[Rfam]
RNA sequence: CCCCUGUGAUGAGUUGCCAUGCUAAUACGGAGACACCCGGUAGGGAGUUUUACCCUAACUUGGGUGUUGUUGAAAUAAACUCUCGUAAAUGCUGAGGGGC
Number, nucleotide and partner (000 for none) at each position: 001c099002c098003c097004c096005u000006g000007u000008g000009a000010u000011g000012a000013g000014u000015u000016g000017c000018c000019a000020u000021g000022c000023u000024a000025a000026u000027a000028c000029g000030g000031a000032g000033a000034c000035a000036c000037c000038c000039g000040g000041u057042a056043g055044g054045g053046a000047g000048u000049u000050u000051u000052a000053c045054c044055c043056u042057a041058a000059c000060u000061u000062g000063g000064g000065u000066g000067u000068u000069g000070u000071u000072g000073a000074a000075a000076u000077a000078a000079a000080c000081u000082c000083u000084c000085g000086u000087a000088a000089a000090u000091g000092c000093u000094g000095a000096g004097g003098g002099g001100c000
The record is a 100-nucleotide RNA from Pan paniscus, which matches "Small nucleolar RNA U6-53/MBII-28" in Rfam.
Rfam 15.1 lists 780 matches to the family in 403 species.
For this family Rfam cites "RNomics: an experimental approach that identifies 201 candidates for novel, small, non-messenger RNAs in mouse" (Huttenhofer et al., EMBO J, 2001).
It is annotated as a C/D-box small nucleolar RNA.